[Rfam]
RNA sequence: UGCGAUGAGCUGAGAGGUUUGGUUGUCACCCAAAUGGCAACCCCGCAUUCGCGGUAAAACUCUCGUGGGGCCCAUAACCUGCCGGAUUGCAGGGGGCUCGGGGUGAAACGUAGUGGACGACGU
Numbered sequence: 001u002g003c004g005a006u007g008a009g010c011u012g013a014g015a016g017g018u019u020u021g022g023u024u025g026u027c028a029c030c031c032a033a034a035u036g037g038c039a040a041c042c043c044c045g046c047a048u049u050c051g052c053g054g055u056a057a058a059a060c061u062c063u064c065g066u067g068g069g070g071c072c073c074a075u076a077a078c079c080u081g082c083c084g085g086a087u088u089g090c091a092g093g094g095g096g097c098u099c100g101g102g103g104u105g106a107a108a109c110g111u112a113g114u115g116g117a118c119g120a121c122g123u
Base pairs, nucleotide, nucleotide: 017060018059019058020057021042022041023040024039025038026037027036028035043054044053045052046051069098070097071096072095073094078093079092080091081090082089108123109122110121111120